Notes: A member of the RNA family "Small nucleolar RNA SNORD115" from Camelus bactrianus, 79 nucleotides long. The family has 32 seed sequences and 3,387 matches in Rfam 15.1. It scores 65 bits against the family's covariance model. Rfam classes the family as a C/D-box small nucleolar RNA. Taxonomically the source falls in Camelus (Eukaryota, Eumetazoa, Dipnotetrapodomorpha, Amniota). Gene Ontology terms of the family: nucleolus and RNA processing. The family's consensus secondary structure was predicted with PFOLD.

[Rfam]
RNA sequence: GGGCAAUGAUGAGAACUCACAUGAUCUUUAUGAGAGAUAAUGACCUAAAAUCAUGCACAAUAGGAUUUCGCUGAGGCUC
Numbered sequence: 001g002g003g004c005a006a007u008g009a010u011g012a013g014a015a016c017u018c019a020c021a022u023g024a025u026c027u028u029u030a031u032g033a034g035a036g037a038u039a040a041u042g043a044c045c046u047a048a049a050a051u052c053a054u055g056c057a058c059a060a061u062a063g064g065a066u067u068u069c070g071c072u073g074a075g076g077c078u079c
Base pairs, nucleotide, nucleotide: 001078002077004073005072007070008069